[Rfam]
RNA sequence: AGAACGUGAUGAGUUGCUUUCAAUUCUUGGUCUGUGUUUCUGACCUCAAGCUGAUGUGUGCAAAGCUCUCUGAUUCU
Number, nucleotide and partner (000 for none) at each position: 001a077002g076003a075004a074005c000006g000007u000008g000009a000010u000011g000012a000013g000014u000015u000016g000017c000018u000019u000020u000021c000022a000023a000024u000025u000026c000027u000028u000029g000030g000031u000032c000033u000034g000035u000036g000037u000038u000039u000040c000041u000042g000043a000044c000045c000046u000047c000048a000049a000050g000051c000052u000053g000054a000055u000056g000057u000058g000059u000060g000061c000062a000063a000064a000065g000066c000067u000068c000069u000070c000071u000072g000073a000074u004075u003076c002077u001
RNA: Small nucleolar RNA SNORD18